[Rfam]
RNA sequence: UCCCUCCAGAUCCCUUUCCCAUCAGAUCUGAAUACCGAUCUUGUGGUCGAAAAAGGAGGAAAAAUAAAAUUCGAACUGGUCUUGGCCUCUUUGCUGGUGCGGUCCUGCGCUGAGAGAGGCCAGUUGGAAGACAU
Numbered sequence: 001u002c003c004c005u006c007c008a009g010a011u012c013c014c015u016u017u018c019c020c021a022u023c024a025g026a027u028c029u030g031a032a033u034a035c036c037g038a039u040c041u042u043g044u045g046g047u048c049g050a051a052a053a054a055g056g057a058g059g060a061a062a063a064a065u066a067a068a069a070u071u072c073g074a075a076c077u078g079g080u081c082u083u084g085g086c087c088u089c090u091u092u093g094c095u096g097g098u099g100c101g102g103u104c105c106u107g108c109g110c111u112g113a114g115a116g117a118g119g120c121c122a123g124u125u126g127g128a129a130g131a132c133a134u
Base pairs, nucleotide, nucleotide: 003059004058005057006056007055019046020045021044023043025040026039027038028037076123077122078121079120080119081118082117